[Rfam]
RNA sequence: UGUCUCCUCCAAAUCUCCCUAAAGUUUGGAUUCAACCCACUACGCUUGCUAAGCUCAGUGGGUUUUUUUUU
Numbered sequence: 001u002g003u004c005u006c007c008u009c010c011a012a013a014u015c016u017c018c019c020u021a022a023a024g025u026u027u028g029g030a031u032u033c034a035a036c037c038c039a040c041u042a043c044g045c046u047u048g049c050u051a052a053g054c055u056c057a058g059u060g061g062g063u064u065u066u067u068u069u070u071u
Base pairs, nucleotide, nucleotide: 008030009029010028011027012026013025014024034064035063036062037061038060039059040058041057
Betaproteobacteria toxic small RNA: a 71-nucleotide RNA from Glaciimonas soli. The literature on the family includes a 2012 paper in Genome Res by Kimelman et al., "A vast collection of microbial genes that are toxic to bacteria". The family's consensus secondary structure was predicted with WAR. Overexpression in amino aid rich medium attenuates growth, suggesting role in repressing amino acid intake and metabolism.